[Rfam]
RNA sequence: UAGAACUGAUAAUCCGAAGGGUGGAAUGAAAGGGUAACGCCUUGAAACGCCCUCCCUGAUACUCCGGCGGGCGCAGCCCAAAAGGCUGAUGUCCGAAGCCCGGUGAAGUCGGCAGAGAGCUACCGUCUUGCGGCUGUUGGAACAACGCAACGAAAGCUGUCCAGAGGUGGAUGGUGUGGCCUAUAUGCCGGGGGUCUAUAAA
Numbered sequence: 001u002a003g004a005a006c007u008g009a010u011a012a013u014c015c016g017a018a019g020g021g022u023g024g025a026a027u028g029a030a031a032g033g034g035u036a037a038c039g040c041c042u043u044g045a046a047a048c049g050c051c052c053u054c055c056c057u058g059a060u061a062c063u064c065c066g067g068c069g070g071g072c073g074c075a076g077c078c079c080a081a082a083a084g085g086c087u088g089a090u091g092u093c094c095g096a097a098g099c100c101c102g103g104u105g106a107a108g109u110c111g112g113c114a115g116a117g118a119g120c121u122a123c124c125g126u127c128u129u130g131c132g133g134c135u136g137u138u139g140g141a142a143c144a145a146c147g148c149a150a151c152g153a154a155a156g157c158u159g160u161c162c163a164g165a166g167g168u169g170g171a172u173g174g175u176g177u178g179g180c181c182u183a184u185a186u187g188c189c190g191g192g193g194g195u196c197u198a199u200a201a202a
Stems, first nucleotide, its partner, number of pairs: 018053006031043004054194004064103004068095006074088005110190005119180005124152003130148002156175008

The record is a 202-nucleotide RNA sequence from Colidextribacter sp. OB.20, which matches "Group II catalytic intron D1-D4-5" in Rfam. Gene Ontology term of the family: Group II intron splicing. Pairs were carried over by alignment from the consensus structure. Group II introns are found in rRNA, tRNA and mRNA of organelles in fungi, plants and protists, and also in mRNA in bacteria. It scores 182 bits against the family's covariance model.